The family of this 135-nucleotide RNA from Coregonus sp. 'balchen' is "U8 small nucleolar RNA". For this family Rfam cites "The U8 snoRNA gene family: identification and characterization of distinct, functional U8 genes in Xenopus" (Peculis et al., Gene, 2001).
[Rfam]
RNA sequence: UCGUCAGUGAGGUACAUCCUUACCUGUUACUUCAGAAAUGGAGUAUCAGAACAUGAUGAAUGGAGAUUGAUGAGAAAUGAUUAUUCUCACCUGGUUCUCGGAGGAAACGCAACACUCCGAGGAUCCUAUUCUGAU
Dot-bracket structure: .......................(((.((((((......)))))).)))......................(..(.((....).).)..)...(((((((((.............)))))))))...........
A search with the family's covariance model found it, with a score of 93 bits.
Rfam links the family to the GO terms nucleolus and RNA processing.
The family's RNA type in Rfam is C/D-box small nucleolar RNA.